A member of the RNA family "L2-Alphaproteobacteria ribosomal protein leader" from Pseudooceanicola batsensis, 79 nucleotides long. On this family, see Eckert and Weinberg, BMC Microbiol 2020: "Discovery of 20 novel ribosomal leader candidates in bacteria and archaea". The source organism's lineage runs through Bacteria, Alphaproteobacteria, Rhodobacterales, Pseudooceanicola and Pseudooceanicola batsensis. It is annotated as a cis-regulatory leader.
[Rfam]
RNA sequence: GGCCACCUUCGGGGGGCUUAUCACAUAGGUCUUCGCGCCCGGAGGGGCAGGGGAUCGCUAGCUAAACGGAAGACAGAAA
Numbered sequence: 001g002g003c004c005a006c007c008u009u010c011g012g013g014g015g016g017c018u019u020a021u022c023a024c025a026u027a028g029g030u031c032u033u034c035g036c037g038c039c040c041g042g043a044g045g046g047g048c049a050g051g052g053g054a055u056c057g058c059u060a061g062c063u064a065a066a067c068g069g070a071a072g073a074c075a076g077a078a079a
Stems, first nucleotide, its partner, number of pairs: 001018004006014003028056005037048004